Twister_sister_ribozyme: an 81-nucleotide RNA.
RNA sequence: GCAACCCGCAAGGCCGACGCACAACGCGCCGCCGGUGCAAGCCCGGCCACCCUGCAAAGGGUGGGCGCUCAUGGGUACACA
Numbered sequence: 001g002c003a004a005c006c007c008g009c010a011a012g013g014c015c016g017a018c019g020c021a022c023a024a025c026g027c028g029c030c031g032c033c034g035g036u037g038c039a040a041g042c043c044c045g046g047c048c049a050c051c052c053u054g055c056a057a058a059g060g061g062u063g064g065g066c067g068c069u070c071a072u073g074g075g076u077a078c079a080c081a
Stems, first nucleotide, its partner, number of pairs: 004076004013066003018028003031047004048063006
Gene Ontology term of the family: catalytic activity.